[Rfam]
RNA sequence: GGUCAUGAGAAGCAGCGCCAAGCCCCGGCUGGCUGCUCGGCAACCCUCCUUCCGCGGUGGGGUGCCCCGGGUGAUGACCAGGCAUCGCGCGAAGCACCGCGCGCGCUGCAAGCGCGGGCC
Numbered sequence: 001g002g003u004c005a006u007g008a009g010a011a012g013c014a015g016c017g018c019c020a021a022g023c024c025c026c027g028g029c030u031g032g033c034u035g036c037u038c039g040g041c042a043a044c045c046c047u048c049c050u051u052c053c054g055c056g057g058u059g060g061g062g063u064g065c066c067c068c069g070g071g072u073g074a075u076g077a078c079c080a081g082g083c084a085u086c087g088c089g090c091g092a093a094g095c096a097c098c099g100c101g102c103g104c105g106c107u108g109c110a111a112g113c114g115c116g117g118g119c120c
Base pairs, nucleotide, nucleotide: 001079002078003077004076009038011037012036013035014034015033016032021030022029039066040065041064044062045061046060048057049056082109083108084107086105087104088103089102090101091100
SAM (S-adenosyl methionine) riboswitch aptamer: a 120-nucleotide RNA from Lolliginicoccus lacisalsi. Clan: SAM clan. The base pairs follow the family's consensus structure, which is taken from published work.